The record is a 104-nucleotide sequence from Vibrio campbellii, which matches "Tryptophan operon leader" in Rfam. The family's RNA type in Rfam is cis-regulatory leader. Rfam links the family to the GO terms tryptophan biosynthetic process and transcriptional attenuation by ribosome. Lineage of the source: Bacteria > Pseudomonadati > Vibrionales > Vibrio > Vibrio campbellii. At least 6 amino acid operons are known to be regulated by attenuation. In each a leader sequence of 150-200 bp is found upstream of the first gene in the operon. This leader sequence can assume two different secondary structures known as the terminator and the anti-terminator structure. In each case the leader also codes for very short peptide sequence that is rich in the end product amino acid of the operon. The terminator structure is recognised as a termination signal for RNA polymerase and the operon is not transcribed. This structure forms when the cell has an excess of the regulatory amino acid and ribosome movement over the leader transcript is not impeded. When there is a deficiency of the charged tRNA of the regulatory amino acid the ribosome translating the leader peptide stalls and the antiterminator structure can form. This allows RNA polymerase to transcribe the operon. In the Rfam alignment the consensus structure is of the terminator structure.

RNA sequence: CUUGCUUGGUGGCGCACUUGGACAAGUUCUUGGUGGGCAAACGUGUACUUCUAGUUUAGAGAAUUAAAUGUCACAAAGCCCGCUACCUCAGCGGGCUUUUUGUU
Numbered sequence: 001c002u003u004g005c006u007u008g009g010u011g012g013c014g015c016a017c018u019u020g021g022a023c024a025a026g027u028u029c030u031u032g033g034u035g036g037g038c039a040a041a042c043g044u045g046u047a048c049u050u051c052u053a054g055u056u057u058a059g060a061g062a063a064u065u066a067a068a069u070g071u072c073a074c075a076a077a078g079c080c081c082g083c084u085a086c087c088u089c090a091g092c093g094g095g096c097u098u099u100u101u102g103u104u
Base pairs, nucleotide, nucleotide: 009042010041015035016034017033018032020030021029022028077097078096079095080094081093082092083091